Record summary: The family of this 360-nucleotide part of an RNA from Candidatus Haloredivivus sp. G17 is "Archaeal large subunit ribosomal RNA". The base pairs follow the family's consensus structure, which is taken from published work. Its Rfam clan is "LSU clan".
[Rfam]
RNA sequence: CGGGUAUAACGCAGCUUAGGGAAUUCGGCAAGUUAGCCCCGUACCUUCGGUAGAUGGGGUGCCUAUCCACUUGAUUGGAUAGGUUGCAAUUACUAGGGGAGCUCGACUGUUUACUAAAAACACAGCCGACUGCUACUCCGAAAGGACUUGUAUAGUCGGCGACUCUUGCCCAGUGCCAGCACCUGAAACCUCCGUACAAGGAGAAGAAGGGCUGGUAAACGGCGGCGGUAACUAUGACCGUCUUAAGGUAGCGUAGUCCCUUGCCAAUUAAUUGUUGGCCCGCAUCAAUAGAGUAACGAGGCUCCUACUGUCCCAAGCUGUGGCCCGGUGAACCCGCCGUACCGGCGCAUAGGCCGGUGA
Numbered sequence: 001c002g003g004g005u006a007u008a009a010c011g012c013a014g015c016u017u018a019g020g021g022a023a024u025u026c027g028g029c030a031a032g033u034u035a036g037c038c039c040c041g042u043a044c045c046u047u048c049g050g051u052a053g054a055u056g057g058g059g060u061g062c063c064u065a066u067c068c069a070c071u072u073g074a075u076u077g078g079a080u081a082g083g084u085u086g087c088a089a090u091u092a093c094u095a096g097g098g099g100a101g102c103u104c105g106a107c108u109g110u111u112u113a114c115u116a117a118a119a120a121c122a123c124a125g126c127c128g129a130c131u132g133c134u135a136c137u138c139c140g141a142a143a144g145g146a147c148u149u150g151u152a153u154a155g156u157c158g159g160c161g162a163c164u165c166u167u168g169c170c171c172a173g174u175g176c177c178a179g180c181a182c183c184u185g186a187a188a189c190c191u192c193c194g195u196a197c198a199a200g201g202a203g204a205a206g207a208a209g210g211g212c213u214g215g216u217a218a219a220c221g222g223c224g225g226c227g228g229u230a231a232c233u234a235u236g237a238c239c240g241u242c243u244u245a246a247g248g249u250a251g252c253g254u255a256g257u258c259c260c261u262u263g264c265c266a267a268u269u270a271a272u273u274g275u276u277g278g279c280c281c282g283c284a285u286c287a288a289u290a291g292a293g294u295a296a297c298g299a300g301g302c303u304c305c306u307a308c309u310g311u312c313c314c315a316a317g318c319u320g321u322g323g324c325c326c327g328g329u330g331a332a333c334c335c336g337c338c339g340u341a342c343c344g345g346c347g348c349a350u351a352g353g354c355c356g357g358u359g360a
Base pairs, nucleotide, nucleotide: 001327002326003325004324010322011321012320013319014318015317016316017315019313020312021311036060037059038058039057040056045050061084062083063082064081065080066079067078068077069076085089097306098305099304100303101302102301103300104298105297108122109121110120125160126159127158128157129156130155131154132153133150137146138145139144163293164292165291166290168223169222170221173220174219175216176215177214178213179212182211183210184209190203191202192201193200224242225241226240227239228238229237243247263279264278265277266276267275268274341358342357343356344355345354